[Rfam]
RNA sequence: CUGUGGUGCAUUGUAGUUGCAUUGCAUGUAUCUUCACCGAGUGCAAUGUGCCUGCAGUGCAACACAG
Numbered sequence: 001c002u003g004u005g006g007u008g009c010a011u012u013g014u015a016g017u018u019g020c021a022u023u024g025c026a027u028g029u030a031u032c033u034u035c036a037c038c039g040a041g042u043g044c045a046a047u048g049u050g051c052c053u054g055c056a057g058u059g060c061a062a063c064a065c066a067g
Stems, first nucleotide, its partner, number of pairs: 001067004006063001007061010019049001021047007
Shown here is a 67-nucleotide RNA sequence from Clupea harengus, a member of the family "mir-33 microRNA precursor family".
NCBI's taxonomy places the organism under Eukaryota, Opisthokonta, Eumetazoa, Craniata, Clupea.
Rfam links the family to the GO terms gene silencing by miRNA and RISC complex.